RNA sequence: UAGUGUGUAUCAGGUGUAACAGCAUCUCCAUGUGGACCGCUCGAUACUCCAGUGGAGAUGCUGUUACUUUUGAUGGGCAC
Number, nucleotide and partner (000 for none) at each position: 001u000002a000003g000004u000005g000006u000007g000008u000009a000010u073011c072012a071013g000014g000015u000016g067017u066018a065019a064020c063021a062022g061023c060024a000025u000026c057027u056028c055029c054030a053031u052032g000033u051034g050035g049036a000037c000038c000039g000040c000041u000042c000043g000044a000045u000046a000047c000048u000049c035050c034051a033052g031053u030054g029055g028056a027057g026058a000059u000060g023061c022062u021063g020064u019065u018066a017067c016068u000069u000070u000071u012072g011073a010074u000075g000076g000077g000078c000079a000080c000
mir-194 microRNA precursor family: an 80-nucleotide sequence from Leptobrachium leishanense.
Taxonomically the source falls in Leptobrachium (Eukaryota, Euteleostomi, Amphibia, Megophryidae).
The match comes from Rfam's covariance-model search (77 bits).
Rfam 15.1 lists 936 matches to the family in 630 species.